[Rfam]
RNA sequence: GGCCUGGGGGCGGCGAUCCCCUCACGAGGCUCCGGCCGAAGCAUCGCGUCCAGUCUGCUCUCUCGCAGGGACGCGCCAUG
Numbered sequence: 001g002g003c004c005u006g007g008g009g010g011c012g013g014c015g016a017u018c019c020c021c022u023c024a025c026g027a028g029g030c031u032c033c034g035g036c037c038g039a040a041g042c043a044u045c046g047c048g049u050c051c052a053g054u055c056u057g058c059u060c061u062c063u064c065g066c067a068g069g070g071a072c073g074c075g076c077c078a079u080g
Stems, first nucleotide, its partner, number of pairs: 005024006046074006
A member of the RNA family "chrB-a RNA" from Methylobacterium sp. WSM2598, 80 nucleotides long. The family's RNA type in Rfam is cis-regulatory element. Rfam 15.1 lists 347 matches to the family in 339 species.